[Rfam]
RNA sequence: AUUAUCGCAGGCAAUGGAGUUCUGCCUCUAACCACUGUCCAAUUUGGGUCAGUUGAUGACUCCUACCAGAGU
Numbered sequence: 001a002u003u004a005u006c007g008c009a010g011g012c013a014a015u016g017g018a019g020u021u022c023u024g025c026c027u028c029u030a031a032c033c034a035c036u037g038u039c040c041a042a043u044u045u046g047g048g049u050c051a052g053u054u055g056a057u058g059a060c061u062c063c064u065a066c067c068a069g070a071g072u
Base pairs, nucleotide, nucleotide: 010026011025012024013023016063017062018061019060020059021058034053035052036051037050